[Rfam]
RNA sequence: GGAGUCAGCCAGACAGUCGCCGCUCGCUUGCGAGGGGAGGAAAGUCCGGGCUCCAUAGGGUAGGGUGCCAGAUAACGUCUGGGCGGCGAAAGCCGACGGCAAGUGCAGCAGAGAGGAGACCGCCUUAGGCUUCGGCCUUCGGUAAGGGUGAAAGGGUGCGGUAAGAGCGCACCGCAACACUGGUAACAGUUGUUGGCGAGGUAAACCCCACCUGGAGCAAGACCAAAUAGGAUUCCGUUCGGCGUGACCCGCGCUGGAAUCGGGUAGGUUGCUUGACUGUACGAGUGAUUGUGCAGCUAGAUGAAUGACUGUCCACGACAGAACCCGGCUUACCGGCUGACUCCCCCA
Numbered sequence: 001g002g003a004g005u006c007a008g009c010c011a012g013a014c015a016g017u018c019g020c021c022g023c024u025c026g027c028u029u030g031c032g033a034g035g036g037g038a039g040g041a042a043a044g045u046c047c048g049g050g051c052u053c054c055a056u057a058g059g060g061u062a063g064g065g066u067g068c069c070a071g072a073u074a075a076c077g078u079c080u081g082g083g084c085g086g087c088g089a090a091a092g093c094c095g096a097c098g099g100c101a102a103g104u105g106c107a108g109c110a111g112a113g114a115g116g117a118g119a120c121c122g123c124c125u126u127a128g129g130c131u132u133c134g135g136c137c138u139u140c141g142g143u144a145a146g147g148g149u150g151a152a153a154g155g156g157u158g159c160g161g162u163a164a165g166a167g168c169g170c171a172c173c174g175c176a177a178c179a180c181u182g183g184u185a186a187c188a189g190u191u192g193u194u195g196g197c198g199a200g201g202u203a204a205a206c207c208c209c210a211c212c213u214g215g216a217g218c219a220a221g222a223c224c225a226a227a228u229a230g231g232a233u234u235c236c237g238u239u240c241g242g243c244g245u246g247a248c249c250c251g252c253g254c255u256g257g258a259a260u261c262g263g264g265u266a267g268g269u270u271g272c273u274u275g276a277c278u279g280u281a282c283g284a285g286u287g288a289u290u291g292u293g294c295a296g297c298u299a300g301a302u303g304a305a306u307g308a309c310u311g312u313c314c315a316c317g318a319c320a321g322a323a324c325c326c327g328g329c330u331u332a333c334c335g336g337c338u339g340a341c342u343c344c345c346c347c348a
Stems, first nucleotide, its partner, number of pairs: 001344010012313007020037002023034004042331003046328005051217004058250004063213005068082005083097001084095004098208002103206002105202002120147002122143003127138004155173006174197001175195005180189003221270004231261006241255005277296008
The record is a 348-nucleotide sequence from Reinekea marinisedimentorum, which matches "Bacterial RNase P class A" in Rfam. Pairs were carried over by alignment from the consensus structure, which is taken from published work. Rfam links the family to the GO terms tRNA processing, dimeric ribonuclease P complex and ribonuclease P activity.